RNA sequence: AAAAUACAUCAAGAUUUUGAGUUUUAAACGCUCAAAAACCAACCGAGACGCGAGUCCGCGGUGGUCAAAAGAUGUGGACAGUCUGUCAAAAUAAAGAGCAACU
Numbered sequence: 001a002a003a004a005u006a007c008a009u010c011a012a013g014a015u016u017u018u019g020a021g022u023u024u025u026a027a028a029c030g031c032u033c034a035a036a037a038a039c040c041a042a043c044c045g046a047g048a049c050g051c052g053a054g055u056c057c058g059c060g061g062u063g064g065u066c067a068a069a070a071g072a073u074g075u076g077g078a079c080a081g082u083c084u085g086u087c088a089a090a091a092u093a094a095a096g097a098g099c100a101a102c103u
Base pairs, nucleotide, nucleotide: 006075007074008073009072010071015037016036017035018034019033020032021031022030038065039064040063043061044060045059047056048055050099051098077087078086079085080084
Annotation: Rfam assigns this 103-nucleotide RNA sequence from Oceanihabitans sp. IOP_32 to the family "SAM-I/IV (S-adenosyl methionine) riboswitch aptamer". Its Rfam clan is "SAM clan". Lineage of the source: Bacteria > Pseudomonadati > Flavobacteriia > Flavobacteriales > Oceanihabitans. Rfam links the family to the GO terms regulation of gene expression and S-adenosylmethionine metabolic process. It scores 57 bits against the family's covariance model.